This 75-nucleotide RNA belongs to the Rfam family "HDV ribozyme from F. prausnitzii". Rfam links the family to the GO term catalytic activity. A reference for the family is Webb et al. (2009), "Widespread occurrence of self-cleaving ribozymes", Science. It is one of the family's seed sequences.

RNA sequence: GCUGCUCUAAUAAUCACACACCUCUCCGCGGUGAGUAGCAGGCAACGAUCUAUUAUGAUUGGCUGAGAUGUGAUG
Dot-bracket structure: (((((((............(((.......))))))))))......(((((......)))))..............